[Rfam]
RNA sequence: GUCGAGCUCGGUAGCGUGAGCUUGUAACUCAAGCGAGGACAUUAAGGUGGUUGAACACUGGCCAAGACCUACUAGGUAGGCUCUGGGGUGCAAUUGUUGGCUCGCCCGUUCCAAGUUUGGAGUUGGCUUAUUGUGGCAUUGGCGAAGGCCUAGGUCAUGUGGCCAUUAGAGUGGUAGGCACUGCGUCAGGCUGGUUUCACAGAGCAGCGACCACUACCCUCUCUAAACAGUGGAAGGAUAACGAGCCGAUGCACCUCAGUUCCAACUCGGCCUAGCAUGCUGGCUGAUACAGGUGUAUCCUAGUCUCUUUA
Numbered sequence: 001g002u003c004g005a006g007c008u009c010g011g012u013a014g015c016g017u018g019a020g021c022u023u024g025u026a027a028c029u030c031a032a033g034c035g036a037g038g039a040c041a042u043u044a045a046g047g048u049g050g051u052u053g054a055a056c057a058c059u060g061g062c063c064a065a066g067a068c069c070u071a072c073u074a075g076g077u078a079g080g081c082u083c084u085g086g087g088g089u090g091c092a093a094u095u096g097u098u099g100g101c102u103c104g105c106c107c108g109u110u111c112c113a114a115g116u117u118u119g120g121a122g123u124u125g126g127c128u129u130a131u132u133g134u135g136g137c138a139u140u141g142g143c144g145a146a147g148g149c150c151u152a153g154g155u156c157a158u159g160u161g162g163c164c165a166u167u168a169g170a171g172u173g174g175u176a177g178g179c180a181c182u183g184c185g186u187c188a189g190g191c192u193g194g195u196u197u198c199a200c201a202g203a204g205c206a207g208c209g210a211c212c213a214c215u216a217c218c219c220u221c222u223c224u225a226a227a228c229a230g231u232g233g234a235a236g237g238a239u240a241a242c243g244a245g246c247c248g249a250u251g252c253a254c255c256u257c258a259g260u261u262c263c264a265a266c267u268c269g270g271c272c273u274a275g276c277a278u279g280c281u282g283g284c285u286g287a288u289a290c291a292g293g294u295g296u297a298u299c300c301u302a303g304u305c306u307c308u309u310u311a
Stems, first nucleotide, its partner, number of pairs: 001040003004023007028037003043311005049305005055296003058292003061284003065281002068279001070277001072275002075272003079263002083259004088254003093250001097249008106237002109235005115228008124165005132159006139152001141150003166171001173218005184209003191202003
Description
Plant signal recognition particle RNA: a 311-nucleotide sequence from Papaver nudicaule. Clan: SRP clan. NCBI's taxonomy places the organism under Eukaryota, Euphyllophyta, Spermatophyta, Mesangiospermae, Papaver. Rfam 15.1 lists 4,988 matches to the family in 266 species. The base pairs follow the family's consensus structure, which is taken from published work. On this family, see Wild et al., Curr Opin Struct Biol 2002: "Towards the structure of the mammalian signal recognition particle".